[Rfam]
Nucleotides: 372
Base pairs, nucleotide, nucleotide: 039054040053041052042051043050058228059227060226061225062224068221070219071218072217073216074215084206085205086204088203089202090201094110095109096108097107098106111188112187113186114185115184116183117182229243230242231241235252236251237250238249239248338353339352340351341350344370345369347367
Number, partner (000 for none) and nucleotide at each position: 001000u002000c003000a004000c005000u006000u007000c008000a009000c010000a011000u012000u013000a014000a015000u016000c017000g018000c019000c020000a021000u022000u023000u024000c025000c026000c027000u028000a029000u030000a031000u032000a033000g034000g035000g036000u037000g038000u039054g040053c041052c042051g043050g044000u045000u046000u047000c048000g049000g050043c051042c052041g053040g054039c055000u056000a057000u058228g059227g060226c061225g062224a063000u064000a065000a066000a067000c068221g069000a070219c071218g072217g073216u074215g075000u076000g077000c078000a079000a080000u081000a082000g083000g084206c085205a086204c087000a088203g089202c090201g091000g092000a093000c094110c095109c096108g097107g098106g099000g100000g101000c102000a103000g104000u105000a106098c107097c108096c109095g110094g111188c112187g113186g114185c115184u116183c117182c118000a119000c120000c121000a122000u123000c124000u125000g126000g127000g128000c129000c130000g131000a132000g133000c134000c135000g136000c137000g138000c139000g140000a141000c142000c143000a144000g145000c146000c147000c148000g149000c150000a151000u152000g153000a154000c155000g156000c157000g158000g159000g160000c161000c162000g163000g164000c165000c166000g167000g168000g169000c170000g171000g172000c173000u174000c175000a176000g177000c178000u179000g180000a181000u182117g183116g184115g185114g186113c187112c188111g189000a190000a191000c192000c193000a194000g195000g196000a197000u198000c199000g200000a201090c202089g203088u204086g205085u206084g207000u208000u209000g210000a211000a212000a213000a214000g215074c216073a217072c218071c219070g220000a221068c222000u223000u224062u225061c226060g227059c228058u229243c230242g231241g232000a233000a234000g235252g236251g237250g238249c239248c240000a241231c242230c243229g244000u245000g246000a247000c248239g249238g250237c251236u252235c253000a254000u255000c256000a257000c258000a259000c260000a261000a262000g263000u264000g265000c266000c267000a268000a269000c270000g271000a272000u273000a274000a275000c276000g277000a278000g279000g280000c281000g282000c283000u284000c285000g286000c287000g288000a289000u290000u291000g292000c293000c294000g295000c296000g297000u298000a299000a300000c301000c302000a303000a304000a305000g306000c307000c308000u309000c310000a311000c312000g313000g314000c315000c316000u317000a318000g319000g320000u321000u322000a323000c324000u325000a326000a327000g328000g329000a330000c331000a332000a333000a334000a335000g336000c337000g338353c339352g340351g341350u342000c343000g344370g345369g346000c347367c348000g349000c350341a351340c352339c353338g354000g355000g356000c357000a358000a359000c360000a361000g362000a363000a364000g365000c366000g367347g368000a369345u370344u371000c372000c
The family of this 372-nucleotide sequence from Allosphingosinicella ginsenosidimutans is "Alphaproteobacteria transfer-messenger RNA". The family's RNA type in Rfam is non-coding RNA gene. Taxonomically the source falls in Allosphingosinicella (Bacteria, Alphaproteobacteria, Sphingomonadales, Sphingomicrobiaceae). The base pairs follow the family's consensus structure, which is taken from published work. Rfam describes the family as follows. Bacterial tmRNA, also known as 10Sa RNA or SsrA, is named for its dual tRNA and mRNA-like properties. The literature on the family includes a 2003 paper in Nucleic Acids Res by Zwieb et al., "tmRDB (tmRNA database)".